[Rfam]
RNA sequence: AGCUCGUCCGGGUCGACCGCCCUGGUCACCAGCAGGUAGUCGCGGAGGCAGAUGCCGUGGCGGCCCUC
Numbered sequence: 001a002g003c004u005c006g007u008c009c010g011g012g013u014c015g016a017c018c019g020c021c022c023u024g025g026u027c028a029c030c031a032g033c034a035g036g037u038a039g040u041c042g043c044g045g046a047g048g049c050a051g052a053u054g055c056c057g058u059g060g061c062g063g064c065c066c067u068c
Stems, first nucleotide, its partner, number of pairs: 004063003008059001011030003015027004035056004040052002

Background: This 68-nucleotide sequence from Amycolatopsis sp. YIM 10 belongs to the Rfam family "ASdes TB sRNA". By type it is a small RNA. Pairs were carried over by alignment from the consensus structure, which is taken from published work. Lineage of the source: Bacteria > Bacillati > Actinomycetota > Actinomycetes > Amycolatopsis.